Shown here is a 104-nucleotide RNA sequence from Populus deltoides, a member of the family "Small nucleolar RNA snoR104". By type it is an H/ACA-box small nucleolar RNA. The base pairs follow the family's consensus structure, which was predicted with WAR. The match comes from Rfam's covariance-model search (73 bits). The family has 8 seed sequences and 612 matches in Rfam 15.1.
RNA sequence: AGGGAGCAUCUAAAAGCUGAGAGCUACCUGCUAGAGAAAACUCUGUGGUUUCCUGCUUGUAGUGCUUAAGCAAUUCUGCAAGCCUCAAAUGUUCAGAGACACGA
Numbered sequence: 001a002g003g004g005a006g007c008a009u010c011u012a013a014a015a016g017c018u019g020a021g022a023g024c025u026a027c028c029u030g031c032u033a034g035a036g037a038a039a040a041c042u043c044u045g046u047g048g049u050u051u052c053c054u055g056c057u058u059g060u061a062g063u064g065c066u067u068a069a070g071c072a073a074u075u076c077u078g079c080a081a082g083c084c085u086c087a088a089a090u091g092u093u094c095a096g097a098g099a100c101a102c103g104a
Stems, first nucleotide, its partner, number of pairs: 001029003005025003009022003042097003055083008064074001066073001

The literature on the family includes a 2002 paper in Curr Biol by Marker et al., "Experimental RNomics: identification of 140 candidates for small non-messenger RNAs in the plant Arabidopsis thaliana".